[Rfam]
RNA: pan motif
RNA sequence: UGGGCAGUAUCUUUAUUGGAAGAACUACACUAAAAAUUGUUUAUUAUUUUUUAUAUCUUUGCCUGUAUCCACUUAACUGGAACAGGACAAAACU
Numbered sequence: 001u002g003g004g005c006a007g008u009a010u011c012u013u014u015a016u017u018g019g020a021a022g023a024a025c026u027a028c029a030c031u032a033a034a035a036a037u038u039g040u041u042u043a044u045u046a047u048u049u050u051u052u053a054u055a056u057c058u059u060u061g062c063c064u065g066u067a068u069c070c071a072c073u074u075a076a077c078u079g080g081a082a083c084a085g086g087a088c089a090a091a092a093c094u
Stems, first nucleotide, its partner, number of pairs: 001032003004028001006026003010023004059090003062086005068081003